[Rfam]
RNA sequence: CCUUCUGUGAUGAUUUUAUCAGCAUGACUUUCGUUCUUCUAAAUUUGCUGAAGCCACAUUUAGACAAUGAGAGGG
Numbered sequence: 001c002c003u004u005c006u007g008u009g010a011u012g013a014u015u016u017u018a019u020c021a022g023c024a025u026g027a028c029u030u031u032c033g034u035u036c037u038u039c040u041a042a043a044u045u046u047g048c049u050g051a052a053g054c055c056a057c058a059u060u061u062a063g064a065c066a067a068u069g070a071g072a073g074g075g
Stems, first nucleotide, its partner, number of pairs: 001075003005071001